Annotation: SAM-III riboswitch aptamer (SMK box): an 87-nucleotide RNA from Ignavigranum ruoffiae. The literature on the family includes a 2007 paper in Proc Natl Acad Sci U S A by Fuchs et al., "S-adenosylmethionine directly inhibits binding of 30S ribosomal subunits to the SMK box translational riboswitch RNA". Pairs were carried over by alignment from the consensus structure, which is taken from published work. The organism belongs to Ignavigranum, within Bacteria. Gene Ontology terms of the family: regulation of translational initiation and methionine adenosyltransferase activity.
RNA sequence: GCUCGUUACAAUAAAAAUUCCCGAAAGGGUUCACAAAUCAGUGAAUAUGCCUUGUAACCAAUAAAGAAAAUGGGGGAACGCUUAAUG
Numbered sequence: 001g002c003u004c005g006u007u008a009c010a011a012u013a014a015a016a017a018u019u020c021c022c023g024a025a026a027g028g029g030u031u032c033a034c035a036a037a038u039c040a041g042u043g044a045a046u047a048u049g050c051c052u053u054g055u056a057a058c059c060a061a062u063a064a065a066g067a068a069a070a071u072g073g074g075g076g077a078a079c080g081c082u083u084a085a086u087g
Base pairs, nucleotide, nucleotide: 018078019077020076021075022074025053026052027051028050030045031044032043033042034041058073059072